[Rfam]
RNA sequence: UUUCAAUAGCUAAAUGAAAUAGAAGUUUACUGGCCGGUUGUUGUGAUAUCAGUCAACAAAUCUGCUUACCGAACUUCUUAACUCA
Numbered sequence: 001u002u003u004c005a006a007u008a009g010c011u012a013a014a015u016g017a018a019a020u021a022g023a024a025g026u027u028u029a030c031u032g033g034c035c036g037g038u039u040g041u042u043g044u045g046a047u048a049u050c051a052g053u054c055a056a057c058a059a060a061u062c063u064g065c066u067u068a069c070c071g072a073a074c075u076u077c078u079u080a081a082c083u084c085a
Base pairs, nucleotide, nucleotide: 021078022077023076024075025074026073027072032066033065034064036062037061038060039059040057041056042055043054
Rfam assigns this 85-nucleotide sequence from Cannabis sativa to the family "Small nucleolar RNA snoR109". The literature on the family includes a 2002 paper in Curr Biol by Marker et al., "Experimental RNomics: identification of 140 candidates for small non-messenger RNAs in the plant Arabidopsis thaliana". The family's consensus secondary structure was predicted with WAR. Lineage of the source: Eukaryota > Euphyllophyta > Mesangiospermae > Rosales > Cannabis. Rfam 15.1 lists 680 matches to the family in 220 species. A search with the family's covariance model found it, with a score of 68 bits. The family's RNA type in Rfam is H/ACA-box small nucleolar RNA.